A member of the RNA family "c-di-GMP-I-GGC riboswitch aptamer" from Cellulomonas sp. WB94, 75 nucleotides long. NCBI's taxonomy places the organism under Bacteria, Bacillati, Actinomycetes, Micrococcales, Cellulomonas. The match comes from Rfam's covariance-model search (61 bits). A reference for the family is Weinberg et al. (2017), "Bioinformatic analysis of riboswitch structures uncovers variant classes with altered ligand specificity", Proc Natl Acad Sci U S A.
RNA sequence: GCGAACAAGGGCAAACCCGCCGCAAGGCGGGGACGCAAAGCCACGGGGCCUCAAGGGCCAGCCGAGCUACCGAAC
Numbered sequence: 001g002c003g004a005a006c007a008a009g010g011g012c013a014a015a016c017c018c019g020c021c022g023c024a025a026g027g028c029g030g031g032g033a034c035g036c037a038a039a040g041c042c043a044c045g046g047g048g049c050c051u052c053a054a055g056g057g058c059c060a061g062c063c064g065a066g067c068u069a070c071c072g073a074a075c
Stems, first nucleotide, its partner, number of pairs: 001075001011036002016031006034061001039068003044064003047059003
Dot-bracket structure: (.........((...((((((....))))))..[))..(((..((((((.......))).]))).)))......)